RNA sequence: CCACUCAAAGACGACGAGAUCGUUGAGUACAUCCUCGCCGGGCUAGAUGAAGAUUUCACCCCGUUCGUCUCUUCCCUAUUAACUAGGGUUGAGCUGUUAUCACUUGAUGAUCUAUUCUCGCAGCUCCUUGCAUUCGAGA
Dot-bracket structure: ...(((.(...............................................................................((((((.........)))))).........................).))).